[Rfam]
RNA sequence: UUUGCGCGUUGCUUGAUGCGUUGCCAGUUGAGAACUUCACUGGAAACGUUUCGCAUCGCGGUAGAUAAACGAAACACUCCCAGCUUACUACUAAUUUAGCGAUUAAAGGGAGUUGCAAUGAAUAUGUUCGUGAUGAUUGAACAGCAUAAAUCGUUGCUGCUGAUACUUGCAUACACUG
Numbered sequence: 001u002u003u004g005c006g007c008g009u010u011g012c013u014u015g016a017u018g019c020g021u022u023g024c025c026a027g028u029u030g031a032g033a034a035c036u037u038c039a040c041u042g043g044a045a046a047c048g049u050u051u052c053g054c055a056u057c058g059c060g061g062u063a064g065a066u067a068a069a070c071g072a073a074a075c076a077c078u079c080c081c082a083g084c085u086u087a088c089u090a091c092u093a094a095u096u097u098a099g100c101g102a103u104u105a106a107a108g109g110g111a112g113u114u115g116c117a118a119u120g121a122a123u124a125u126g127u128u129c130g131u132g133a134u135g136a137u138u139g140a141a142c143a144g145c146a147u148a149a150a151u152c153g154u155u156g157c158u159g160c161u162g163a164u165a166c167u168u169g170c171a172u173a174c175a176c177u178g
Base pairs, nucleotide, nucleotide: 005060006059007058008057010055015052016051019048020047021046022045024043025042026041030038031037076113077112078111079110080109081108085105087103089101091099114171115170116169117168118167122164123163126160127159130157131156133154134153135152136151137150138149

Source information
The family of this 178-nucleotide RNA sequence from Drosophila persimilis is "Drosophila small cajal body-specific RNA PsiU2-55". Pairs were carried over by alignment from the consensus structure, which was predicted with RNAfold. The organism belongs to Sophophora, within Eukaryota. A reference for the family is Deryusheva and Gall (2013), "Novel small Cajal-body-specific RNAs identified in Drosophila: probing guide RNA function", RNA. It is annotated as a small Cajal body RNA. The match comes from Rfam's covariance-model search (96 bits).